[Rfam]
RNA sequence: CGUGCCAGGGAUCGCCCCCCACCAGCGUGUUACGCCCGUGGGGGCAAACUCG
Numbered sequence: 001c002g003u004g005c006c007a008g009g010g011a012u013c014g015c016c017c018c019c020c021a022c023c024a025g026c027g028u029g030u031u032a033c034g035c036c037c038g039u040g041g042g043g044g045c046a047a048a049c050u051c052g
Stems, first nucleotide, its partner, number of pairs: 016044007025035004
Rfam assigns this 52-nucleotide RNA sequence from Rhodobacterales bacterium Y4I to the family "ffh sRNA". Rfam's curators put it in the seed alignment. The base pairs follow the family's consensus structure, which is taken from published work.